[Rfam]
RNA sequence: CGACGUCUGUUCCUCUUCCUGUUUGAAGUCCAACAGGAGGAUUUUAUGAUGUCGUAGAGAAACCUGGGUCUUUUUCACCUGGAAAGCUUCAGGCUGCAGCCAAAACCAAAACCGCUUUCUGGUUUUGCGGGACCCAACAAAC
Numbered sequence: 001c002g003a004c005g006u007c008u009g010u011u012c013c014u015c016u017u018c019c020u021g022u023u024u025g026a027a028g029u030c031c032a033a034c035a036g037g038a039g040g041a042u043u044u045u046a047u048g049a050u051g052u053c054g055u056a057g058a059g060a061a062a063c064c065u066g067g068g069u070c071u072u073u074u075u076c077a078c079c080u081g082g083a084a085a086g087c088u089u090c091a092g093g094c095u096g097c098a099g100c101c102a103a104a105a106c107c108a109a110a111a112c113c114g115c116u117u118u119c120u121g122g123u124u125u126u127g128c129g130g131g132a133c134c135c136a137a138c139a140a141a142c
Base pairs, nucleotide, nucleotide: 001054002053003052004051005050006049007048014041015040016039017038018037020035021034022033023032067134068133069132070131071130072129079122080121081120082119083118084117085116086115087114